RNA sequence: UGUCGGACACCGCCUAAUACUACACCAACAAGGCAGACUUAAUCCCGUGGAGUAGAGCAUGAGCGAUAAAAUUGUUCACCUGAGUGAC
Numbered sequence: 001u002g003u004c005g006g007a008c009a010c011c012g013c014c015u016a017a018u019a020c021u022a023c024a025c026c027a028a029c030a031a032g033g034c035a036g037a038c039u040u041a042a043u044c045c046c047g048u049g050g051a052g053u054a055g056a057g058c059a060u061g062a063g064c065g066a067u068a069a070a071a072u073u074g075u076u077c078a079c080c081u082g083a084g085u086g087a088c
Stems, first nucleotide, its partner, number of pairs: 009067001011065002015061002020055004025050003032045002072087006

Rfam assigns this 88-nucleotide sequence from Enterobacillus tribolii to the family "TrxA 5' UTR thermometer". Its family is annotated with regulation of translation and response to temperature stimulus in the Gene Ontology. On this family, see Righetti et al., Proc Natl Acad Sci U S A 2016: "Temperature-responsive in vitro RNA structurome of Yersinia pseudotuberculosis". The match comes from Rfam's covariance-model search (65 bits). It is annotated as an RNA thermoregulator.